[Rfam]
RNA sequence: CAGGAUUUAUAAGCGCCAGAGCUUGCGUGAUGAACGAUCGGAUGAAGCCGCUGGGACAGGGUAAUCUAAAGACGUUCAUACGGGAAGCUGACGAGGUGAAGGUGUUCGAAGUUUUCGGCGGGGACCUUCCGGUAUAUAAAGCCAACCGUAAGCCGACACGCAAAACGAUCGGGCGACCGAUCCGACAACCGUGCGGCGGGCUUUCGCAA
Numbered sequence: 001c002a003g004g005a006u007u008u009a010u011a012a013g014c015g016c017c018a019g020a021g022c023u024u025g026c027g028u029g030a031u032g033a034a035c036g037a038u039c040g041g042a043u044g045a046a047g048c049c050g051c052u053g054g055g056a057c058a059g060g061g062u063a064a065u066c067u068a069a070a071g072a073c074g075u076u077c078a079u080a081c082g083g084g085a086a087g088c089u090g091a092c093g094a095g096g097u098g099a100a101g102g103u104g105u106u107c108g109a110a111g112u113u114u115u116c117g118g119c120g121g122g123g124a125c126c127u128u129c130c131g132g133u134a135u136a137u138a139a140a141g142c143c144a145a146c147c148g149u150a151a152g153c154c155g156a157c158a159c160g161c162a163a164a165a166c167g168a169u170c171g172g173g174c175g176a177c178c179g180a181u182c183c184g185a186c187a188a189c190c191g192u193g194c195g196g197c198g199g200g201c202u203u204u205c206g207c208a209a
Stems, first nucleotide, its partner, number of pairs: 020089005026083001098129005106118004130148004153199003157195001159193001167182006
The record is a 209-nucleotide RNA sequence from Paenibacillus nanensis, which matches "glmS glucosamine-6-phosphate activated ribozyme aptamer" in Rfam. Rfam describes the family as follows. This entry contains a glucosamine-6-phosphate activated ribozyme that is found in the mRNA for GlmS. GlmS is an enzyme that uses fructose-6-phosphate and glutamine to generate glucosamine-6-phosphate. The ribozyme catalyses self cleavage of the glmS mRNA that is thought to regulate GlmS activity.